The record is a 122-nucleotide RNA from Sitophilus oryzae, which matches "U4atac minor spliceosomal RNA" in Rfam. About the family: U4atac is an essential component of the minor U12-type spliceosome complex which is required for removal of the rarer class of eukaryotic introns (AT-AC, U12-type). Rfam links the family to the GO terms U4atac snRNP, spliceosomal tri-snRNP complex assembly and pre-mRNA 5'-splice site binding. The literature on the family includes a 2005 paper in RNA by Lorkovic et al., "Evolutionary conservation of minor U12-type spliceosome between plants and humans".
RNA sequence: UCCUUCCUUGUCUAGGGGAGCGAAAUGUUCAAUGAUCGUCUAGUGAGAACAUUUUUGCUGACACCCUAUAUAUGAAUUUACCGCACCCGCUGCGCAAAGACGCGAGUGCAAUUUUUGGAGGC
Number, nucleotide and partner (000 for none) at each position: 001u000002c000003c000004u000005u019006c018007c017008u016009u015010g000011u000012c000013u000014a000015g009016g008017g007018g006019a005020g058021c057022g056023a055024a053025a052026u051027g050028u049029u048030c047031a000032a000033u000034g000035a000036u000037c043038g000039u000040c000041u000042a000043g037044u000045g000046a000047g030048a029049a028050c027051a026052u025053u024054u000055u023056u022057g021058c020059u000060g000061a000062c000063a000064c000065c000066c000067u000068a000069u000070a000071u000072a000073u000074g000075a000076a000077u000078u000079u000080a000081c000082c000083g109084c108085a107086c106087c000088c104089g103090c102091u000092g000093c000094g000095c000096a000097a000098a000099g000100a000101c000102g090103c089104g088105a000106g086107u085108g084109c083110a000111a000112u000113u000114u000115u000116u000117g000118g000119a000120g000121g000122c000